[Rfam]
RNA sequence: GAAGUUGUCAUCCUCGGCGGCGAGCAGGGCGUUGAUAAAGUCUUGUGGGAUGUCGUUGAAAGCGAUCGGCGAACGGCGCAUCUCGCCGAAUUCCGCUAUCAGCUUGCCGUCGCUGCUGUAGACGCGCAGCGGGAUCUGCAGCUGUAUGCUGCGUAGCGACUCGACGGAUGGCAGGCUGGGGCUAAGGUAAAGGAAGGCGCCGCUCAAACUGAGCAGCAGCCCACAAAAAAUAGCAACGCAGGACCAGAGCAGGAACUUCAACAAACGCAUCAAAAUGUUUGUAUUUCCAGAUAA
Number, nucleotide and partner (000 for none) at each position: 001g000002a000003a000004g000005u000006u000007g000008u000009c000010a000011u171012c170013c000014u168015c167016g000017g165018c000019g000020g162021c000022g000023a000024g046025c045026a044027g043028g042029g041030c040031g000032u000033u000034g000035a000036u000037a000038a000039a000040g030041u029042c028043u027044u026045g025046u024047g084048g083049g082050a081051u080052g079053u000054c078055g077056u000057u075058g074059a000060a000061a000062g070063c069064g000065a000066u000067c000068g000069g063070c062071g000072a000073a000074c058075g057076g000077c055078g054079c052080a051081u050082c049083u048084c047085g000086c095087c000088g093089a000090a000091u000092u000093c088094c000095g086096c000097u000098a000099u000100c000101a000102g000103c158104u000105u155106g154107c153108c148109g147110u146111c000112g000113c000114u000115g142116c141117u140118g139119u138120a137121g136122a135123c133124g000125c131126g130127c000128a000129g000130c126131g125132g000133g123134a000135u122136c121137u120138g119139c118140a117141g116142c115143u000144g000145u000146a110147u109148g108149c000150u000151g000152c000153g107154u106155a105156g000157c000158g103159a000160c000161u000162c020163g000164a000165c017166g000167g015168a014169u000170g012171g011172c000173a000174g000175g000176c290177u289178g288179g287180g286181g285182c000183u283184a282185a000186g280187g279188u000189a000190a000191a000192g000193g000194a000195a000196g000197g268198c267199g266200c000201c000202g262203c000204u260205c000206a258207a257208a000209c000210u000211g000212a000213g239214c238215a000216g000217c000218a000219g000220c000221c000222c000223a000224c000225a000226a000227a000228a000229a000230a000231u000232a000233g000234c000235a000236a000237c000238g214239c213240a000241g000242g000243a000244c253245c252246a000247g000248a000249g000250c000251a000252g245253g244254a000255a000256c000257u207258u206259c000260a204261a000262c202263a000264a000265a000266c199267g198268c197269a000270u000271c000272a000273a000274a000275a000276u000277g000278u000279u187280u186281g000282u184283a183284u000285u181286u180287c179288c178289a177290g176291a000292u000293a000294a000
anti ponA RNA: a 294-nucleotide sequence from Pseudomonas sp. 21C1. The base pairs follow the family's consensus structure, which was predicted with RNAfold. The family's RNA type in Rfam is antisense RNA. Transcribed antisense to the penicillin-binding protein 1A gene called ponA. It was identified by RNAseq and the expression was validated by 5' and 3' RACE experiments. AsponA expression was up or down regulated under different antibiotic stress. It scores 191 bits against the family's covariance model. A reference for the family is Wurtzel et al. (2012), "The single-nucleotide resolution transcriptome of Pseudomonas aeruginosa grown in body temperature", PLoS Pathog.